[Rfam]
RNA sequence: ACCGGUACCUUAGCGCAGUACUGUCAACCAAGCGGUGGUGGAGGGAUGAAUUUACGCAUUGUGGGUUUACGUCUCCAGUUGUCCCACGUUGAUAACAGUGUCUGGUUGAGAAUGAAGUCACCAGUGUAGGCUUAGAGGAGUCUUAGCCUACGCGGGUAUUAAAUAUGUGGGUAACGCCAAAGUCUAGGUAAUAGAGCAUGGAAAACCGCAAGCUUCAUUCGGCAAGCAGAUGGCACGUUUAAGUGGAUCGCAGCUGGAACGCCAUAGUGGUCGUGGAGACUACCCCUUGU
Number, nucleotide and partner (000 for none) at each position: 001a039002c038003c037004g022005g021006u020007a019008c018009c000010u000011u015012a000013g000014c000015g011016c000017a000018g008019u007020a006021c005022u004023g000024u000025c000026a000027a036028c035029c034030a000031a000032g000033c000034g029035g028036u027037g003038g002039u001040g000041g288042a287043g286044g285045g284046a000047u282048g281049a000050a000051u277052u276053u275054a274055c273056g272057c269058a268059u267060u266061g265062u264063g000064g263065g262066u000067u000068u000069a000070c261071g260072u259073c000074u258075c257076c256077a255078g254079u253080u252081g249082u000083c000084c246085c245086a244087c243088g000089u241090u000091g000092a000093u000094a239095a238096c237097a000098g236099u235100g234101u233102c229103u228104g000105g227106u225107u224108g223109a000110g220111a219112a218113u217114g216115a215116a214117g213118u212119c000120a157121c156122c155123a000124g153125u152126g151127u150128a149129g148130g147131c146132u145133u000134a143135g142136a141137g000138g000139a000140g000141u136142c135143u134144u000145a132146g131147c130148c129149u128150a127151c126152g125153c124154g000155g122156g121157u120158a164159u163160u000161a000162a000163a159164u158165a000166u210167g209168u208169g207170g206171g000172u000173a000174a000175c000176g000177c201178c200179a199180a000181a000182g000183u000184c194185u193186a192187g000188g000189u000190a000191a000192u186193a185194g184195a000196g000197c000198a000199u179200g178201g177202a000203a000204a000205a000206c170207c169208g168209c167210a166211a000212g118213c117214u116215u115216c114217a113218u112219u111220c110221g000222g000223c108224a107225a106226g000227c105228a103229g102230a000231u000232g000233g101234c100235a099236c098237g096238u095239u094240u000241a089242a000243g087244u086245g085246g084247a000248u000249c081250g000251c000252a080253g079254c078255u077256g076257g075258a074259a072260c071261g070262c065263c064264a062265u061266a060267g059268u058269g057270g000271u000272c056273g055274u054275g053276g052277a051278g000279a000280c000281u048282a047283c000284c045285c044286c043287u042288u041289g000290u000

Source information: The family of this 290-nucleotide RNA from Umbelopsis isabellina is "Metazoan signal recognition particle RNA". Rfam classes the family as a non-coding RNA gene. It scores 119 bits against the family's covariance model. The source organism's lineage runs through Eukaryota, Fungi, Mucoromycotina, Umbelopsidaceae and Umbelopsis. For this family Rfam cites "Structural and energetic analysis of RNA recognition by a universally conserved protein from the signal recognition particle" (Batey et al., J Mol Biol, 2001). Its family is annotated with SRP-dependent cotranslational protein targeting to membrane, signal sequence recognition and signal recognition particle, endoplasmic reticulum targeting in the Gene Ontology. The family is grouped with related families in Rfam's "SRP clan".